This 46-nucleotide RNA from Actinoplanes philippinensis belongs to the Rfam family "L31-Actinobacteria ribosomal protein leader". Pairs were carried over by alignment from the consensus structure, which is taken from published work. It scores 48 bits against the family's covariance model.

[Rfam]
RNA sequence: AGGGUUCCGGUUCACGUCUCUGCUCAUCACAGGCGACCCGGCGACC
Number, nucleotide and partner (000 for none) at each position: 001a000002g000003g046004g045005u044006u000007c041008c040009g039010g038011u000012u000013c000014a000015c035016g034017u033018c032019u031020c000021u029022g028023c000024u000025c000026a000027u000028c022029a021030c000031a019032g018033g017034c016035g015036a000037c000038c010039c009040g008041g007042c000043g000044a005045c004046c003